[Rfam]
RNA sequence: GCGUCGGUAUCCUUGAACUUUUUUAGGGAACUGAACUUAAAUAUAUUUUAAAAUUUUAAUAUAUUCGACUUAUAUCCAUAAGUGGAAUGAGAACGGAGG
Numbered sequence: 001g002c003g004u005c006g007g008u009a010u011c012c013u014u015g016a017a018c019u020u021u022u023u024u025a026g027g028g029a030a031c032u033g034a035a036c037u038u039a040a041a042u043a044u045a046u047u048u049u050a051a052a053a054u055u056u057u058a059a060u061a062u063a064u065u066c067g068a069c070u071u072a073u074a075u076c077c078a079u080a081a082g083u084g085g086a087a088u089g090a091g092a093a094c095g096g097a098g099g
Base pairs, nucleotide, nucleotide: 001038003036004034005033006032007031008030010029011028012027013026014025015024016023017022066095067094069091070090071089072088073087075086076085077084
Source information
This 99-nucleotide RNA sequence from Clostridium acetireducens belongs to the Rfam family "pan motif". The family's RNA type in Rfam is cis-regulatory element. The organism belongs to Clostridium acetireducens, within Bacteria.